[Rfam]
RNA sequence: AAUCCGAAAGGGCAAACCUGGGGAAACCCAGUGGCGCAAAACUAGAGGGGCUUCGGCUAAAAAGCCAUGCCAGCCAGUUACCGAA
Numbered sequence: 001a002a003u004c005c006g007a008a009a010g011g012g013c014a015a016a017c018c019u020g021g022g023g024a025a026a027c028c029c030a031g032u033g034g035c036g037c038a039a040a041a042c043u044a045g046a047g048g049g050g051c052u053u054c055g056g057c058u059a060a061a062a063a064g065c066c067a068u069g070c071c072a073g074c075c076a077g078u079u080a081c082c083g084a085a
Stems, first nucleotide, its partner, number of pairs: 012037002018031005040079004047075002049071003056065003
A member of the RNA family "c-di-GMP-I riboswitch aptamer" from Bacillus sp. cl95, 85 nucleotides long.